Rfam assigns this 50-nucleotide RNA sequence from Bacillus sp. OK048 to the family "Ribosomal protein L19 leader". On this family, see Zengel and Lindahl, Prog Nucleic Acid Res Mol Biol 1994: "Diverse mechanisms for regulating ribosomal protein synthesis in Escherichia coli". About the family: This family is a putative r-protein leader autoregulatory structure found in B. subtilis and other low-GC Gram-positive bacteria. It is located in the 5' untranslated regions of mRNAs encoding ribosomal protein L19 (rplS). The family's RNA type in Rfam is cis-regulatory leader. Gene Ontology term of the family: regulation of gene expression. It scores 38 bits against the family's covariance model.

RNA sequence: ACGAUGUUCCGCUGCAAUGUAGAAGGAUAGUAGAUAUGCAUGAGCGUCUG
Numbered sequence: 001a002c003g004a005u006g007u008u009c010c011g012c013u014g015c016a017a018u019g020u021a022g023a024a025g026g027a028u029a030g031u032a033g034a035u036a037u038g039c040a041u042g043a044g045c046g047u048c049u050g
Base pairs, nucleotide, nucleotide: 003048004047005046006045007044008043009042013040014039015038016037